[Rfam]
RNA sequence: UCCAUUGCCCAUAAGAGGAGGAGUUCCCCAUCUAGGAGCUACUUUACCAGAUUCUUUAUUA
Numbered sequence: 001u002c003c004a005u006u007g008c009c010c011a012u013a014a015g016a017g018g019a020g021g022a023g024u025u026c027c028c029c030a031u032c033u034a035g036g037a038g039c040u041a042c043u044u045u046a047c048c049a050g051a052u053u054c055u056u057u058a059u060u061a
Stems, first nucleotide, its partner, number of pairs: 017045004022040006
Rfam assigns this 61-nucleotide RNA from Taxus chinensis to the family "Plastid-psbN 5UTR RNA". The literature on the family includes a 2023 paper in Plant Commun by Richter et al., "Retrograde signaling in plants: A critical review focusing on the GUN pathway and beyond". Rfam's curators write: Plastid psbN is a non-coding RNA (ncRNA) recognised in plastids. It was reported as a conserved 11 stem-loop in the prime untranslated region (5UTR) of psbN genes. It has been reported that the motif is retained in a subset of mature transcripts in barley, which can suggests a possible role in transcript alternative 5 prime processing. Rfam 15.1 lists 2,345 matches to the family in 397 species.